[Rfam]
RNA sequence: UCGAACGGUCGCGACUGGCGUUGGAUGGGUCACCAUCGGGGAGCGACACCUGACACGGAGCGCAGCCGUACGCCUGGGCAGCGCCC
Numbered sequence: 001u002c003g004a005a006c007g008g009u010c011g012c013g014a015c016u017g018g019c020g021u022u023g024g025a026u027g028g029g030u031c032a033c034c035a036u037c038g039g040g041g042a043g044c045g046a047c048a049c050c051u052g053a054c055a056c057g058g059a060g061c062g063c064a065g066c067c068g069u070a071c072g073c074c075u076g077g078g079c080a081g082c083g084c085c086c
Stems, first nucleotide, its partner, number of pairs: 004051001008047005015040002017074005025036004063081001065079003
The family of this 86-nucleotide RNA from Curtobacterium sp. MCBD17_032 is "ZMP/ZTP riboswitch aptamer (pfl RNA motif)". Taxonomically the source falls in Curtobacterium (Bacteria, Bacillati, Actinomycetota, Micrococcales). The base pairs follow the family's consensus structure, which is taken from published work. It scores 55 bits against the family's covariance model.